[Rfam]
RNA sequence: UGUGUUUGUAGAACAUAGAAGGAGCGUUCACGUCGUGGCCCCUGUCAGGUAUCUGUUUACCUGCAAAUCCUUCU
Numbered sequence: 001u002g003u004g005u006u007u008g009u010a011g012a013a014c015a016u017a018g019a020a021g022g023a024g025c026g027u028u029c030a031c032g033u034c035g036u037g038g039c040c041c042c043u044g045u046c047a048g049g050u051a052u053c054u055g056u057u058u059a060c061c062u063g064c065a066a067a068u069c070c071u072u073c074u
Stems, first nucleotide, its partner, number of pairs: 011040001014037001017074007024036003046063006

Mammalian CPEB3 ribozyme: a 74-nucleotide RNA sequence from Laticauda laticaudata. The family's consensus secondary structure is taken from published work.